[Rfam]
RNA sequence: AAAUGGCGAUGAAGCGAAAGGUUGCCUAAGGAUCUUGGGAAAUUUUCGUGGAGCAUGUCAGAUCAACGAAUCGGGCGACAG
Numbered sequence: 001a002a003a004u005g006g007c008g009a010u011g012a013a014g015c016g017a018a019a020g021g022u023u024g025c026c027u028a029a030g031g032a033u034c035u036u037g038g039g040a041a042a043u044u045u046u047c048g049u050g051g052a053g054c055a056u057g058u059c060a061g062a063u064c065a066a067c068g069a070a071u072c073g074g075g076c077g078a079c080a081g
Stems, first nucleotide, its partner, number of pairs: 014049003018046004025039005056080004061076001063074002
Dot-bracket structure: .............(((.((((...(((((.....)))))...)))))))......((((.(.((........)).))))).
A member of the RNA family "S10-Clostridia ribosomal protein leader" from Isachenkonia alkalipeptolytica, 81 nucleotides long. It scores 47 bits against the family's covariance model. Rfam classes the family as a cis-regulatory leader. A reference for the family is Eckert and Weinberg (2020), "Discovery of 20 novel ribosomal leader candidates in bacteria and archaea", BMC Microbiol.